[Rfam]
RNA sequence: AAAGCAGGUCUGCAAUUACAGCACUUGAUUUCUUUAGAGUGCUGUCAUUUAUCCUGCUGAUAGCAACUUCCUGCUGCAGAGCGCUCACUCCUCAUCACUGUGUGUGCUGAGGAAGCUCUGUAGCUGCACAU
Numbered sequence: 001a002a003a004g005c006a007g008g009u010c011u012g013c014a015a016u017u018a019c020a021g022c023a024c025u026u027g028a029u030u031u032c033u034u035u036a037g038a039g040u041g042c043u044g045u046c047a048u049u050u051a052u053c054c055u056g057c058u059g060a061u062a063g064c065a066a067c068u069u070c071c072u073g074c075u076g077c078a079g080a081g082c083g084c085u086c087a088c089u090c091c092u093c094a095u096c097a098c099u100g101u102g103u104g105u106g107c108u109g110a111g112g113a114a115g116c117u118c119u120g121u122a123g124c125u126g127c128a129c130a131u
Stems, first nucleotide, its partner, number of pairs: 003058006019044008073124010089113006096106003